[Rfam]
This 93-nucleotide RNA from Labrenzia sp. THAF82 belongs to the Rfam family "Glycine riboswitch aptamer". Pairs were carried over by alignment from the consensus structure. NCBI's taxonomy places the organism under Bacteria, Pseudomonadati, Alphaproteobacteria, Hyphomicrobiales, Labrenzia. About the family: This family represents the bacterial glycine riboswitch. It scores 72 bits against the family's covariance model.
RNA sequence: AAAGCUUAUGCGGGAGAGGCCGGAUGAAAAGAUGCCGGCGCCGAAGGAGCAACCGCCCCGGAAACUCUCAGGCAAAAGGACCGCCUAGGCUAA
Numbered sequence: 001a002a003a004g005c006u007u008a009u010g011c012g013g014g015a016g017a018g019g020c021c022g023g024a025u026g027a028a029a030a031g032a033u034g035c036c037g038g039c040g041c042c043g044a045a046g047g048a049g050c051a052a053c054c055g056c057c058c059c060g061g062a063a064a065c066u067c068u069c070a071g072g073c074a075a076a077a078g079g080a081c082c083g084c085c086u087a088g089g090c091u092a093a
Stems, first nucleotide, its partner, number of pairs: 006088003010084004020038004040073003043069002047067003053061002